[Rfam]
The family of this 244-nucleotide RNA from Alternaria atra is "U2 spliceosomal RNA". The family's consensus secondary structure is taken from published work. The match comes from Rfam's covariance-model search (124 bits). On this family, see Zwieb, Nucleic Acids Res 1997: "The uRNA database". Its Rfam clan is "U2 clan". Rfam links the family to the GO terms mRNA branch site recognition, pre-mRNA branch point binding and U2 snRNP.

RNA sequence: UUAGCUCUCUUUGCCUUUUGGCUUAGAUCAAGUGUAGUAUCUGUUCUUUUUAGUUUAAUCGCUGAGUAAGUUCUUCCGCCAUUGCUCGUCUGGCUACCUUGCUAACUUCCAAUCCAGAACGAGACCACGGUCUCAUUCAUGAUUAUCCUUAUUUUUGCGCCUCGGUUGUGAGUCACUGGGCUUGCUCAUACUCAGAACCAUAGUGUCGCCAAUAUUUCACUACCUUUGGCUGACGCGAACUUUU
Numbered sequence: 001u002u003a004g005c006u007c008u009c010u011u012u013g014c015c016u017u018u019u020g021g022c023u024u025a026g027a028u029c030a031a032g033u034g035u036a037g038u039a040u041c042u043g044u045u046c047u048u049u050u051u052a053g054u055u056u057a058a059u060c061g062c063u064g065a066g067u068a069a070g071u072u073c074u075u076c077c078g079c080c081a082u083u084g085c086u087c088g089u090c091u092g093g094c095u096a097c098c099u100u101g102c103u104a105a106c107u108u109c110c111a112a113u114c115c116a117g118a119a120c121g122a123g124a125c126c127a128c129g130g131u132c133u134c135a136u137u138c139a140u141g142a143u144u145a146u147c148c149u150u151a152u153u154u155u156u157g158c159g160c161c162u163c164g165g166u167u168g169u170g171a172g173u174c175a176c177u178g179g180g181c182u183u184g185c186u187c188a189u190a191c192u193c194a195g196a197a198c199c200a201u202a203g204u205g206u207c208g209c210c211a212a213u214a215u216u217u218c219a220c221u222a223c224c225u226u227u228g229g230c231u232g233a234c235g236c237g238a239a240c241u242u243u244u
Stems, first nucleotide, its partner, number of pairs: 008027003013022003048119004053114001121134005164199004169194003177188004203236005208230005